Record summary
TPP riboswitch aptamer (THI element): a 96-nucleotide RNA sequence from Rhodobacter aestuarii. The match comes from Rfam's covariance-model search (62 bits). The family's consensus secondary structure is taken from published work. From the family's description: Vitamin B(1) in its active form thiamin pyrophosphate (TPP) is an essential coenzyme that is synthesised by coupling of pyrimidine and thiazole moieties in bacteria. The previously detected thiamin-regulatory element, thi box was extended, resulting in a new, highly conserved RNA secondary structure, the THI element, which is widely distributed in eubacteria and also occurs in some archaea. Analysis of operon structures identified a large number of new candidate thiamin-regulated genes, mostly transporters, in various prokaryotic organisms. The THI element is a riboswitch that directly binds to TPP to regulate gene expression through a variety of mechanisms in archaea, bacteria and eukaryotes. through a variety of mechanisms in archaea, bacteria and eukaryotes. Tandem TPP riboswitches have been reported where both TPP riboswitches respond independently to TPP. The structure of TPP riboswitch has been reported for Escherichia coli and Arabidopsis thaliana. The source organism's lineage runs through Bacteria, Pseudomonadati, Alphaproteobacteria, Rhodobacterales and Rhodobacter. Gene Ontology term of the family: thiamine pyrophosphate binding.
RNA sequence: GCACCGCGACAGGGGCGUCCGGGCGACCGGGCUGAGAAGCACCCUUUGAACCUGAACCAGAUCAUGCUGGCGUAGGGAGUCCGCAAACCGGCUUGC
Numbered sequence: 001g002c003a004c005c006g007c008g009a010c011a012g013g014g015g016c017g018u019c020c021g022g023g024c025g026a027c028c029g030g031g032c033u034g035a036g037a038a039g040c041a042c043c044c045u046u047u048g049a050a051c052c053u054g055a056a057c058c059a060g061a062u063c064a065u066g067c068u069g070g071c072g073u074a075g076g077g078a079g080u081c082c083g084c085a086a087a088c089c090g091g092c093u094u095g096c
Stems, first nucleotide, its partner, number of pairs: 006084003011045004016039001017032005051076004057070004